[Rfam]
RNA sequence: AUGCCUUAAUCUAAUGAGUAAGGAAAAUAACGGUAUGCUGGAAACAGCAGACCACCGGCAUUCCAGUGAUUGUCGGAAAGCCAGUUUUUGAAAGGGACGAGGUCGCCCCAGGGUGUCGGCCUACUCUCGCCGAAUGCCCGUCGGUGUUUGCGAUCUUCCCU
Numbered sequence: 001a002u003g004c005c006u007u008a009a010u011c012u013a014a015u016g017a018g019u020a021a022g023g024a025a026a027a028u029a030a031c032g033g034u035a036u037g038c039u040g041g042a043a044a045c046a047g048c049a050g051a052c053c054a055c056c057g058g059c060a061u062u063c064c065a066g067u068g069a070u071u072g073u074c075g076g077a078a079a080g081c082c083a084g085u086u087u088u089u090g091a092a093a094g095g096g097a098c099g100a101g102g103u104c105g106c107c108c109c110a111g112g113g114u115g116u117c118g119g120c121c122u123a124c125u126c127u128c129g130c131c132g133a134a135u136g137c138c139c140g141u142c143g144g145u146g147u148u149u150g151c152g153a154u155c156u157u158c159c160c161u
Stems, first nucleotide, its partner, number of pairs: 004023005032053003036049004055076006093161005100156007108144002111139005116133005